[Rfam]
RNA sequence: CUGGUGCAUCGCUUGAGCCUAGCAAUUUGAGACCAAUCUGGGCAACAAAGUGAGACCUCCA
Numbered sequence: 001c002u003g004g005u006g007c008a009u010c011g012c013u014u015g016a017g018c019c020u021a022g023c024a025a026u027u028u029g030a031g032a033c034c035a036a037u038c039u040g041g042g043c044a045a046c047a048a049a050g051u052g053a054g055a056c057c058u059c060c061a
Stems, first nucleotide, its partner, number of pairs: 009053006017043006027036003
Source information: A member of the RNA family "mir-1285 microRNA precursor family" from Pongo pygmaeus, 61 nucleotides long. Taxonomically the source falls in Pongo (Eukaryota, Opisthokonta, Vertebrata, Theria). The family has 5 seed sequences and 264 matches in Rfam 15.1.